[Rfam]
RNA sequence: GAUAGAUAGUAUGGUAGAAAGAAAUAGAUGAAUCUUUCUACCAUACUAUUUAUUAGUUAGAUUCUUAUUAUAAAGCUGC
Numbered sequence: 001g002a003u004a005g006a007u008a009g010u011a012u013g014g015u016a017g018a019a020a021g022a023a024a025u026a027g028a029u030g031a032a033u034c035u036u037u038c039u040a041c042c043a044u045a046c047u048a049u050u051u052a053u054u055a056g057u058u059a060g061a062u063u064c065u066u067a068u069u070a071u072a073a074a075g076c077u078g079c
Base pairs, nucleotide, nucleotide: 005050006049007048008047009046010045011044012043013042014041015040016039017038018037019036020035021034022033

Record summary
The record is a 79-nucleotide sequence from Solanum commersonii, which matches "Plastid-psbM 3UTR RNA" in Rfam. The organism belongs to Solanum, within Eukaryota. A reference for the family is Richter et al. (2023), "Retrograde signaling in plants: A critical review focusing on the GUN pathway and beyond", Plant Commun. Rfam's curators write: Plastid psbM is a non-coding RNA (ncRNA) recognised in plastids. It was found in the three prime untranslated region (3UTR) of psbM gene, its 3UTR location suggests a role in transcript maturation.